[Rfam]
RNA sequence: ACCGAUAAAGGCAAACCGGGCGUAAGCUCGGGACGCAAAGUCAUGGGUCCGUCCUCAGACGGAUCGCCAGACCGCCGAAG
Numbered sequence: 001a002c003c004g005a006u007a008a009a010g011g012c013a014a015a016c017c018g019g020g021c022g023u024a025a026g027c028u029c030g031g032g033a034c035g036c037a038a039a040g041u042c043a044u045g046g047g048u049c050c051g052u053c054c055u056c057a058g059a060c061g062g063a064u065c066g067c068c069a070g071a072c073c074g075c076c077g078a079a080g
Base pairs, nucleotide, nucleotide: 003077004076011036012035016031017030018029019028020027021026034066040072041071042070044069045068046067047064048063049062050061051060

The family of this 80-nucleotide sequence from Roseiconus nitratireducens is "c-di-GMP-I-GGC riboswitch aptamer". Taxonomically the source falls in Roseiconus (Bacteria, Pseudomonadati, Planctomycetota, Planctomycetia). Rfam links the family to the GO term cyclic-di-GMP binding.